[Rfam]
RNA sequence: CGAUGAGGUAGAGGUCGCGGUUUUUAUCAGUAAAAUGGACGAGACGCAGAGAUGUUUUUGACUCCGUUUGAAAGGAAAAGCUGCCGAAGUGUGUUUUUCUCUCUGGAGAAACAUGCUGGGGCUGUCUCCGAACAGGAACAGAACUGUCACGUUUAGCCUUACCAGCUUUACGUGUUGAGCUAUCUUUCGG
Numbered sequence: 001c002g003a004u005g006a007g008g009u010a011g012a013g014g015u016c017g018c019g020g021u022u023u024u025u026a027u028c029a030g031u032a033a034a035a036u037g038g039a040c041g042a043g044a045c046g047c048a049g050a051g052a053u054g055u056u057u058u059u060g061a062c063u064c065c066g067u068u069u070g071a072a073a074g075g076a077a078a079a080g081c082u083g084c085c086g087a088a089g090u091g092u093g094u095u096u097u098u099c100u101c102u103c104u105g106g107a108g109a110a111a112c113a114u115g116c117u118g119g120g121g122c123u124g125u126c127u128c129c130g131a132a133c134a135g136g137a138a139c140a141g142a143a144c145u146g147u148c149a150c151g152u153u154u155a156g157c158c159u160u161a162c163c164a165g166c167u168u169u170a171c172g173u174g175u176u177g178a179g180c181u182a183u184c185u186u187u188c189g190g
Stems, first nucleotide, its partner, number of pairs: 006185006017084009033069007088117012118145002122141004127136002148174005
Dot-bracket structure: .....((((((.....(((((((((.......(((((((.......................)))))))......)))))))))...((((((((((((......))))))))))))((..((((.((......)).))))..))..(((((.................))))).....)))))).....

Shown here is a 190-nucleotide RNA sequence from Neobacillus rhizophilus, a member of the family "Lysine riboswitch aptamer". The source organism's lineage runs through Bacteria, Bacillati, Bacillota, Caryophanales and Neobacillus.